The record is a 52-nucleotide RNA, which matches "L31-Actinobacteria ribosomal protein leader" in Rfam.

RNA sequence: GCGGUACCGGUUCACGCCCCGCCGGAUCCUCCGGCGCGGCGACCCGGCGACC
Numbered sequence: 001g002c003g004g005u006a007c008c009g010g011u012u013c014a015c016g017c018c019c020c021g022c023c024g025g026a027u028c029c030u031c032c033g034g035c036g037c038g039g040c041g042a043c044c045c046g047g048c049g050a051c052c
Stems, first nucleotide, its partner, number of pairs: 003052003007047004015041004020036007